[Rfam]
Nucleotides: 079
Base pairs, nucleotide, nucleotide: 001079002078003077004076005075006074007073
Number, partner (000 for none) and nucleotide at each position: 001079g002078c003077u004076g005075g006074c007073a008000u009000a010000a011000u012000g013000a014000u015000g016000a017000g018000a019000c020000u021000u022000c023000u024000g025000c026000c027000g028000u029000u030000u031000a032000c033000c034000c035000a036000u037000c038000u039000g040000a041000g042000u043000g044000u045000u046000u047000u048000u049000u050000g051000a052000u053000g054000u055000g056000u057000a058000u059000c060000a061000u062000g063000a064000g065000a066000u067000c068000u069000g070000a071000a072000a073007u074006g075005c076004c077003a078002g079001u